[Rfam]
RNA sequence: CCCUUAACUUAUUUUUUGGUUUCGUUUUGGUCCCUUAACUUAUUUUUUGGUUUCAUUUUGGUCGCUUAACUUAUUUUUUGGUUUCAUUUUGGUCCCUUAACUCUAAUACAUUCAUCCUAACAUAAAGGACCAAAGUAGUUGACGGAGGAAGAGUUAAUGGACCAAAACGAAACCAAAAAGUAAGUUAAGGGACCAAAACGACACCAAAAAAUAAGUUAAGGAACCAAAAAAAUAAUUAAGCCU
Dot-bracket structure: ........................(((.(((.(((((((((((((.(((...........................................................................................................................................................))).))))))))))))).))).)))..............
The record is a 243-nucleotide RNA sequence from Medicago truncatula, which matches "MIR2655 microRNA precursor family" in Rfam. Gene Ontology terms of the family: RISC complex and miRNA-mediated post-transcriptional gene silencing. A search with the family's covariance model found it, with a score of 172 bits.